Rfam assigns this 69-nucleotide RNA sequence from Actinophytocola oryzae to the family "ASpks TB sRNA". Lineage of the source: Bacteria > Actinomycetota > Actinomycetes > Pseudonocardiaceae > Actinophytocola. A search with the family's covariance model found it, with a score of 61 bits.

RNA sequence: CUUGACCGACCCGAGCAGCAGCGGCACGGACCGGUCCUGGCCGUAGGUGGCCAGCAGUGCCUCCGCCUC
Numbered sequence: 001c002u003u004g005a006c007c008g009a010c011c012c013g014a015g016c017a018g019c020a021g022c023g024g025c026a027c028g029g030a031c032c033g034g035u036c037c038u039g040g041c042c043g044u045a046g047g048u049g050g051c052c053a054g055c056a057g058u059g060c061c062u063c064c065g066c067c068u069c
Stems, first nucleotide, its partner, number of pairs: 015025002027065003032059002037054003041050003